[Rfam]
c-di-GMP-I riboswitch aptamer: an 87-nucleotide RNA from Koleobacter methoxysyntrophicus. The match comes from Rfam's covariance-model search (90 bits). The base pairs follow the family's consensus structure, which is taken from published work.
RNA sequence: CUUAGUUCAGGGCAAACUUCCCGAAAGGGAAGGACGCAAAGCUGCGGGUCUAAAGUCUGAAAAGACUAUGACAGCCGAGCUGCACAA
Numbered sequence: 001c002u003u004a005g006u007u008c009a010g011g012g013c014a015a016a017c018u019u020c021c022c023g024a025a026a027g028g029g030a031a032g033g034a035c036g037c038a039a040a041g042c043u044g045c046g047g048g049u050c051u052a053a054a055g056u057c058u059g060a061a062a063a064g065a066c067u068a069u070g071a072c073a074g075c076c077g078a079g080c081u082g083c084a085c086a087a
Stems, first nucleotide, its partner, number of pairs: 012037002017032006040081004045077003048072003055066004
Dot-bracket structure: ...........((...((((((....))))))...))..((((.((((((....((((....))))...)))..)))))))......